[Rfam]
RNA sequence: GAAAGCAAAUGAUGAAAUUAAAUCUUAUCCUACACACUGAAUUAUAUAUGUGGAUUAUAUCUCAAAAUUUUAUAAUCUGAUGCUUUC
Numbered sequence: 001g002a003a004a005g006c007a008a009a010u011g012a013u014g015a016a017a018u019u020a021a022a023u024c025u026u027a028u029c030c031u032a033c034a035c036a037c038u039g040a041a042u043u044a045u046a047u048a049u050g051u052g053g054a055u056u057a058u059a060u061c062u063c064a065a066a067a068u069u070u071u072a073u074a075a076u077c078u079g080a081u082g083c084u085u086u087c
Base pairs, nucleotide, nucleotide: 003085004084005083006082007081
Dot-bracket structure: ..(((((.........................................................................)))))..